[Rfam]
A member of the RNA family "RgsA sRNA" from Pseudomonas sp. HLS-6, 196 nucleotides long. Taxonomically the source falls in Pseudomonas (Bacteria, Pseudomonadota, Gammaproteobacteria, Pseudomonadales). It is annotated as a small RNA. A search with the family's covariance model found it, with a score of 189 bits. Rfam describes the family as follows. This small RNA (sRNA) was computationally identified in the genome of the opportunistic pathogen Pseudomonas aeruginosa and its expression verified by northern blot analysis. P16 sRNA appears to be conserved across several Pseudomonas species and Azotobacter vinelandii. Rfam links the family to the GO terms sRNA-mediated gene silencing, response to hydrogen peroxide and response to oxidative stress.

RNA sequence: CAACAACCCCACGCGUAUUCCAAAUUUGUUUAAAAAUCGACCAACCUGCAGUGGAAUAGCGCCAAUCCUGACCAAUACUUGAACUGUUAGCGCGGCAUACCCCCCCCAAGUGUCGCGCUGAUAAAGGUGCGAAAGGAUUGAGUACCUUUGUUUUACUCCUAAUGGUCUUAACCCGGAUUCACCCCCCAGAACCCGG
Numbered sequence: 001c002a003a004c005a006a007c008c009c010c011a012c013g014c015g016u017a018u019u020c021c022a023a024a025u026u027u028g029u030u031u032a033a034a035a036a037u038c039g040a041c042c043a044a045c046c047u048g049c050a051g052u053g054g055a056a057u058a059g060c061g062c063c064a065a066u067c068c069u070g071a072c073c074a075a076u077a078c079u080u081g082a083a084c085u086g087u088u089a090g091c092g093c094g095g096c097a098u099a100c101c102c103c104c105c106c107c108a109a110g111u112g113u114c115g116c117g118c119u120g121a122u123a124a125a126g127g128u129g130c131g132a133a134a135g136g137a138u139u140g141a142g143u144a145c146c147u148u149u150g151u152u153u154u155a156c157u158c159c160u161a162a163u164g165g166u167c168u169u170a171a172c173c174c175g176g177a178u179u180c181a182c183c184c185c186c187c188a189g190a191a192c193c194c195g196g
Stems, first nucleotide, its partner, number of pairs: 039167005086122004091117002094114001096112003123149008173196004178191003